The record is a 262-nucleotide sequence from Hirundo rustica, which matches "RNase MRP" in Rfam. It scores 98 bits against the family's covariance model. It is annotated as a ribozyme.
RNA sequence: GAAUGUUCUGAAGACCUGCUUGCCAGGCCACGCACAGAGGACCUCGGUUCUCCAUGGGCCUUACAUCCACCCUGGGGAAAGUCCCCGGACUGAUGGCAGAGAGUGUUGGCUGCUGACGCGCCCCUGCCCAGCACCCCACACCACCCUCUGUUGAGACACCCUUGGGCUGAGCAGGUGAGCUCAGGGCAGGCCCUUGUCACAGACCACAGACGCAGGCAGUGCGGCAGGUGCGCCAUCAGAAUGGGGCUCACUCUCAGGCUUU
Dot-bracket structure: .((.(.(((((...(((((...(((((.........((((((....)))))).................)).)))....[[.[[[[........((((.....))))((.(((....))).))..((((.(.....(.(........((((.......((....))....))))..).)..).))))........................)))))..(((((.....))))).........]]]]]].....)))))).))